[Rfam]
RNA sequence: GGGCUUCGGUCGGGACCGACCUCCUCCCCGGUCCCGCCGGAUCAGGCCAGUUUUCUCCUCCUCCCGAAAACUGGCCGCUCCUAACGGCACCCGCCGGAUCUCCUCCCCCGGCGGGUGCUGUUU
Numbered sequence: 001g002g003g004c005u006u007c008g009g010u011c012g013g014g015a016c017c018g019a020c021c022u023c024c025u026c027c028c029c030g031g032u033c034c035c036g037c038c039g040g041a042u043c044a045g046g047c048c049a050g051u052u053u054u055c056u057c058c059u060c061c062u063c064c065c066g067a068a069a070a071c072u073g074g075c076c077g078c079u080c081c082u083a084a085c086g087g088c089a090c091c092c093g094c095c096g097g098a099u100c101u102c103c104u105c106c107c108c109c110g111g112c113g114g115g116u117g118c119u120g121u122u123u
Stems, first nucleotide, its partner, number of pairs: 007040001009038001011036007045076010087118011
This 123-nucleotide RNA sequence from Pseudaminobacter soli belongs to the Rfam family "Alphaproteobacterial ar14".
The pairing is the family consensus, mapped onto this sequence.
The source organism's lineage runs through Bacteria, Pseudomonadati, Alphaproteobacteria, Hyphomicrobiales and Pseudaminobacter.
From the family's description: Smr14C2 was renamed NfeR1 (Nodule Formation Efficiency RNA) highly expressed in salt stress and during the symbiotic interaction on legume roots.
Rfam classes the family as a small RNA.
Its family is annotated with biological process involved in symbiotic interaction in the Gene Ontology.
The family has 118 seed sequences and 784 matches in Rfam 15.1.